[Rfam]
RNA: mir-393 microRNA precursor family
RNA sequence: GCUGGAGUGUUCCAAAGGGAUCGCAUUGAUCUAAUGACUCUCGAUGUCUAAAUCAUAUUAAUGUUUAGUUUUUUCGUUGGAUCAUGCGAUCCCUUAGGAAUUUUCCA
Numbered sequence: 001g002c003u004g005g006a007g008u009g010u011u012c013c014a015a016a017g018g019g020a021u022c023g024c025a026u027u028g029a030u031c032u033a034a035u036g037a038c039u040c041u042c043g044a045u046g047u048c049u050a051a052a053u054c055a056u057a058u059u060a061a062u063g064u065u066u067a068g069u070u071u072u073u074u075c076g077u078u079g080g081a082u083c084a085u086g087c088g089a090u091c092c093c094u095u096a097g098g099a100a101u102u103u104u105c106c107a
Stems, first nucleotide, its partner, number of pairs: 003107004009101005015095007023087004028083005